[Rfam]
RNA: SAH (S-adenosyl-L-homocysteine) riboswitch aptamer
Organism: Candidatus Macondimonas diazotrophica
RNA sequence: CAUUCCGAGGAGCGCUGCAAGGCUCGGCUGCAACGGCCCUGCCCCAGGCUCGGAAGCGGUUCAACGGCGCUCUCCGACA
Number, nucleotide and partner (000 for none) at each position: 001c000002a000003u055004u054005c053006c052007g051008a050009g000010g000011a000012g000013c000014g000015c000016u000017g000018c000019a000020a000021g043022g042023c041024u000025c000026g038027g037028c036029u035030g000031c000032a000033a000034c000035g029036g028037c027038c026039c000040u000041g023042c022043c021044c000045c000046a000047g000048g000049c000050u008051c007052g006053g005054a004055a003056g000057c000058g000059g000060u000061u000062c000063a000064a000065c000066g000067g000068c000069g000070c000071u000072c000073u000074c000075c000076g000077a000078c000079a000